[Rfam]
tRNA: a 71-nucleotide RNA from a Sphingobacteriales bacterium. Rfam describes the family as follows. Transfer RNA (tRNA) molecules are approximately 80 nucleotides in length. Their secondary structure includes four short double-helical elements and three loops (D, anti-codon, and T loops). The source organism's lineage runs through Bacteria, Pseudomonadati, Bacteroidota, Sphingobacteriia and Sphingobacteriales. Rfam classes the family as a transfer RNA. Rfam links the family to the GO term triplet codon-amino acid adaptor activity.

RNA sequence: AGUCGCAUGGUGUAACGGUAGCACUACAGAUUUUGGUUCUGUCUGUCUUGGUUCGAAUCCAGGUGUGACUA
Numbered sequence: 001a002g003u004c005g006c007a008u009g010g011u012g013u014a015a016c017g018g019u020a021g022c023a024c025u026a027c028a029g030a031u032u033u034u035g036g037u038u039c040u041g042u043c044u045g046u047c048u049u050g051g052u053u054c055g056a057a058u059c060c061a062g063g064u065g066u067g068a069c070u071a
Stems, first nucleotide, its partner, number of pairs: 001070007010024004026042005047063005